[Rfam]
RNA sequence: GUAGGCUAUGGAGACAUGGUUCCAACCACCAUUGGGGGAAAGAUAGUGGGCUCUCUGUGCGCCAUCGCAGGUGUGUUAACCAUUGCCUUACCGGUCCCAGUCAUAGUGUCCAAU
Numbered sequence: 001g002u003a004g005g006c007u008a009u010g011g012a013g014a015c016a017u018g019g020u021u022c023c024a025a026c027c028a029c030c031a032u033u034g035g036g037g038g039a040a041a042g043a044u045a046g047u048g049g050g051c052u053c054u055c056u057g058u059g060c061g062c063c064a065u066c067g068c069a070g071g072u073g074u075g076u077u078a079a080c081c082a083u084u085g086c087c088u089u090a091c092c093g094g095u096c097c098c099a100g101u102c103a104u105a106g107u108g109u110c111c112a113a114u
Base pairs, nucleotide, nucleotide: 001114002113004111005110007108008107009106011104013102014101015100018097019096021094037077038076040074049063050062051061